[Rfam]
RNA sequence: GGAGUUGGCCAAGACAGUCGCUGCCCGCGAUUGCGGGGGGAGGAAAGUCCGGGCUCCGCAGGGUAGAGUGCCAGGUAACGCCUGGGAGGCGCGAGCCUACGGAAAGUGCCACAGAAAAGAUACCGCCUUGCAGCCUUCGCGGGCCGGAAGGUAAGGGUGAAAUGGUGCGGUAAGAGCGCACCGCGCUUCCGGUAACGGAAGCGGCAGGGAAAACCCCACUCGGAGCAAGACCAAAUAGGGGAGCAAGGGCUGGUCCCAACAUGUGACCCGCAUGGCUCCCGGGUAGGUUGCUUGAGGCGGAUGGCGACAUACGCCCCAGAUGAAUGACUGUCCUUGACAGAACCCGGCUUAACGGCUGACUCCACUU
Numbered sequence: 001g002g003a004g005u006u007g008g009c010c011a012a013g014a015c016a017g018u019c020g021c022u023g024c025c026c027g028c029g030a031u032u033g034c035g036g037g038g039g040g041a042g043g044a045a046a047g048u049c050c051g052g053g054c055u056c057c058g059c060a061g062g063g064u065a066g067a068g069u070g071c072c073a074g075g076u077a078a079c080g081c082c083u084g085g086g087a088g089g090c091g092c093g094a095g096c097c098u099a100c101g102g103a104a105a106g107u108g109c110c111a112c113a114g115a116a117a118a119g120a121u122a123c124c125g126c127c128u129u130g131c132a133g134c135c136u137u138c139g140c141g142g143g144c145c146g147g148a149a150g151g152u153a154a155g156g157g158u159g160a161a162a163u164g165g166u167g168c169g170g171u172a173a174g175a176g177c178g179c180a181c182c183g184c185g186c187u188u189c190c191g192g193u194a195a196c197g198g199a200a201g202c203g204g205c206a207g208g209g210a211a212a213a214c215c216c217c218a219c220u221c222g223g224a225g226c227a228a229g230a231c232c233a234a235a236u237a238g239g240g241g242a243g244c245a246a247g248g249g250c251u252g253g254u255c256c257c258a259a260c261a262u263g264u265g266a267c268c269c270g271c272a273u274g275g276c277u278c279c280c281g282g283g284u285a286g287g288u289u290g291c292u293u294g295a296g297g298c299g300g301a302u303g304g305c306g307a308c309a310u311a312c313g314c315c316c317c318a319g320a321u322g323a324a325u326g327a328c329u330g331u332c333c334u335u336g337a338c339a340g341a342a343c344c345c346g347g348c349u350u351a352a353c354g355g356c357u358g359a360c361u362c363c364a365c366u367u
Stems, first nucleotide, its partner, number of pairs: 001363010013332007021040002024037005045350003049347005054225004061269004066221005071085005086100001087098004101216002106214002109209002123156002125152005131146001133144004164182006183205001184203008229289004239280006260274005296315004301310003

Shown here is a 367-nucleotide sequence from Candidatus Methylospira mobilis, a member of the family "Bacterial RNase P class A". By type it is a ribozyme. The source organism's lineage runs through Bacteria, Gammaproteobacteria, Methylococcales, Methylococcaceae and Candidatus Methylospira. Rfam links the family to the GO terms dimeric ribonuclease P complex, tRNA processing and ribonuclease P activity.